Shown here is a 75-nucleotide RNA sequence from Cavia porcellus, a member of the family "GAIT element". About the family: This family represents a cis-acting element in the 3'-UTR of the ceruloplasmin (Cp) gene called gamma interferon inhibitor of translation (GAIT). The GAIT element is involved in selective translational silencing of the Cp transcript. Ceruloplasmin (Cp) is a multifunctional, copper-containing glycoprotein produced by the liver and secreted into the plasma. A search with the family's covariance model found it, with a score of 50 bits. Rfam classes the family as a cis-regulatory element. The source organism's lineage runs through Eukaryota, Dipnotetrapodomorpha, Theria, Rodentia and Cavia. Its family is annotated with negative regulation of translation in the Gene Ontology.
RNA sequence: GUGUGUGACAGUGCUGAAUGGAAAAUUUACUGUGGAAUGGCUAUAAAUAUUAAAAACAAAAGACUGGAAACACAU
Numbered sequence: 001g002u003g004u005g006u007g008a009c010a011g012u013g014c015u016g017a018a019u020g021g022a023a024a025a026u027u028u029a030c031u032g033u034g035g036a037a038u039g040g041c042u043a044u045a046a047a048u049a050u051u052a053a054a055a056a057c058a059a060a061a062g063a064c065u066g067g068a069a070a071c072a073c074a075u
Stems, first nucleotide, its partner, number of pairs: 001075006010065003022051002025048003033043003